[Rfam]
RNA: MIR8622 microRNA precursor family
RNA sequence: CCGAAAUCUGCGCCGGAACCAAGCGGCAUCCAACACUUGUCACAGCCGUGCUCGCCGCCACUAUACCCAAUCUCCUGAACCACGGGUCGUCAGCAGUAGCUAGUGUCAUCAGCUACUGCUUUAAACCCGCAGUCUCCUGAACCACGGGUCGUCAGCAGUAGCUGAUGACACUAGCUACUGCUGACGACCCGUGGUUCAGGAGAUUGGGUAUAGUGGCGGCGAGCACGGCUGUGACAAGUGUUGGAUGCCGCUUGGUUCCGGCGCAGAUUUCGG
Dot-bracket structure: (((((((((((((((((((((((((((((((((.(((((((.(((((((((((.(((((((.((((.(((.(.(((((((...(((....((((((((((((((((((((((((((((((.................................))))))))))))))))))))))))))))))....)))...))))))).).))).)))).))))))).))))))))))).))))))).)))))))))))))))))))))))))))))))))